[Rfam]
RNA sequence: GGCACCCAAGCGGGAGAGACCGGCCGAAGAUGCCGGCGCCGAAGGCGCAACCGCCCCGGAAACGCUCAGGCCGCAGGACCGCUGGGACCGC
Numbered sequence: 001g002g003c004a005c006c007c008a009a010g011c012g013g014g015a016g017a018g019a020c021c022g023g024c025c026g027a028a029g030a031u032g033c034c035g036g037c038g039c040c041g042a043a044g045g046c047g048c049a050a051c052c053g054c055c056c057c058g059g060a061a062a063c064g065c066u067c068a069g070g071c072c073g074c075a076g077g078a079c080c081g082c083u084g085g086g087a088c089c090g091c
Stems, first nucleotide, its partner, number of pairs: 006086002009083005020036004038071003041067002045065003051059002
Dot-bracket structure: .....((.(((((......((((.........)))).(((((..(((...((.....))...))))).))).......))))).)).....

Shown here is a 91-nucleotide RNA sequence from Glycocaulis alkaliphilus, a member of the family "Glycine riboswitch aptamer". Taxonomically the source falls in Glycocaulis (Bacteria, Pseudomonadati, Pseudomonadota, Maricaulaceae). Rfam links the family to the GO term glycine biosynthetic process. The match comes from Rfam's covariance-model search (60 bits). The base pairs follow the family's consensus structure.